[Rfam]
RNA sequence: UUUUUAUUGAACAUUAACCGUUAUGUAUCACGAUUUUAUUGAGAGUUGGUGGUUGAUGUUAAUUAGAUUUACAAAAUUAACAUCCAAUAAAGUGUAACACGUGAUGAUCAACAUCU
Number, nucleotide and partner (000 for none) at each position: 001u000002u000003u000004u000005u000006a000007u000008u000009g000010a000011a000012c000013a000014u000015u000016a000017a000018c000019c000020g105021u104022u103023a102024u000025g100026u099027a000028u000029c000030a095031c094032g000033a000034u092035u091036u090037u000038a088039u087040u086041g000042a000043g000044a000045g000046u000047u000048g000049g000050u000051g000052g000053u000054u000055g000056a000057u000058g000059u000060u000061a000062a000063u000064u000065a000066g000067a000068u000069u000070u000071a000072c000073a000074a000075a000076a000077u000078u000079a000080a000081c000082a000083u000084c000085c000086a040087a039088u038089a000090a036091a035092g034093u000094g031095u030096a000097a000098c000099a026100c025101g000102u023103g022104a021105u020106g000107a000108u000109c000110a000111a000112c000113a000114u000115c000116u000

MIR1520 microRNA precursor family: a 116-nucleotide RNA from Glycine max. Rfam links the family to the GO terms miRNA-mediated post-transcriptional gene silencing and RISC complex. The family is grouped with related families in Rfam's "MIR1520 microRNA precursor clan". It scores 53 bits against the family's covariance model. The family's consensus secondary structure was predicted with RNAalifold.